[Rfam]
RNA sequence: GUCACUUGUCGCGGUCGUCCCGAUUUGCGACAGCUCCCUCCGGUUCGCACUCUUGUGGUGUACCUGGAGACGAUAGCUCGGCUUUUAUGGAUGUCUUUUGGCCGUGCGGAAUGCCCUCCUUGCUCGCUCUGUGAAGAGCAUCUGGAGAGGAAAUCAAAAACCAAUCCUUGUU
Numbered sequence: 001g002u003c004a005c006u007u008g009u010c011g012c013g014g015u016c017g018u019c020c021c022g023a024u025u026u027g028c029g030a031c032a033g034c035u036c037c038c039u040c041c042g043g044u045u046c047g048c049a050c051u052c053u054u055g056u057g058g059u060g061u062a063c064c065u066g067g068a069g070a071c072g073a074u075a076g077c078u079c080g081g082c083u084u085u086u087a088u089g090g091a092u093g094u095c096u097u098u099u100g101g102c103c104g105u106g107c108g109g110a111a112u113g114c115c116c117u118c119c120u121u122g123c124u125c126g127c128u129c130u131g132u133g134a135a136g137a138g139c140a141u142c143u144g145g146a147g148a149g150g151a152a153a154u155c156a157a158a159a160a161c162c163a164a165u166c167c168u169u170g171u172u
Base pairs, nucleotide, nucleotide: 007032008031009030010029011028012027013026015023016022017021037072038069039068040067041066042065043063044062046060048057049056050055090166091165092164093161094160096159097158098157099156100155101154114150115149116147117146118145119144126139127138128137129136130135

Shown here is a 172-nucleotide part of an RNA from Hapsidospora chrysogena, a member of the family "Ascomycota telomerase RNA". Rfam links the family to the GO terms telomerase activity, telomerase catalytic core complex and telomere maintenance via telomerase. It scores 369 bits against the family's covariance model. The pairing is the family consensus, mapped onto this sequence. Taxonomically the source falls in Hapsidospora chrysogena (Eukaryota, Opisthokonta, Pezizomycotina, Hypocreales). For this family Rfam cites "The common ancestral core of vertebrate and fungal telomerase RNAs" (Qi et al., Nucleic Acids Res, 2013).